[Rfam]
RNA: mir-317 microRNA precursor family
RNA sequence: CCGAUUAGGCGCAGGGUACCACGCUGUGUUUUCUGUUUUGUAUUGCAGUGAACACAGCUGGUGGUAUCUCAGCGCCAAGUCGGCA
Numbered sequence: 001c002c003g004a005u006u007a008g009g010c011g012c013a014g015g016g017u018a019c020c021a022c023g024c025u026g027u028g029u030u031u032u033c034u035g036u037u038u039u040g041u042a043u044u045g046c047a048g049u050g051a052a053c054a055c056a057g058c059u060g061g062u063g064g065u066a067u068c069u070c071a072g073c074g075c076c077a078a079g080u081c082g083g084c085a
Base pairs, nucleotide, nucleotide: 008076009075010074011073012072014070015068016067018065019064021062022061024057025056026055028053030051031050